[Rfam]
RNA sequence: GAGCCAGCUUAGCCCAGCCCAGCGGUUCCAUCGAACAAAGCAUUGCACAGACGCCCCAAUCGCUUCUGGCGGUUCGAGACCCGCGGGAGCUGCCUGGCUUUCAA
Numbered sequence: 001g002a003g004c005c006a007g008c009u010u011a012g013c014c015c016a017g018c019c020c021a022g023c024g025g026u027u028c029c030a031u032c033g034a035a036c037a038a039a040g041c042a043u044u045g046c047a048c049a050g051a052c053g054c055c056c057c058a059a060u061c062g063c064u065u066c067u068g069g070c071g072g073u074u075c076g077a078g079a080c081c082c083g084c085g086g087g088a089g090c091u092g093c094c095u096g097g098c099u100u101u102c103a104a
Stems, first nucleotide, its partner, number of pairs: 002099006018087003022084004031077004
The record is a 104-nucleotide RNA from Podarcis muralis, which matches "Vault RNA" in Rfam. Taxonomically the source falls in Podarcis (Eukaryota, Vertebrata, Teleostomi, Bifurcata). About the family: This family of RNAs are found as part of the enigmatic vault ribonucleoprotein complex. The complex consists of a major vault protein (MVP), two minor vault proteins (VPARP and TEP1), and several small untranslated RNA molecules. It has been suggested that the vault complex is involved in drug resistance. Rfam classes the family as a non-coding RNA gene.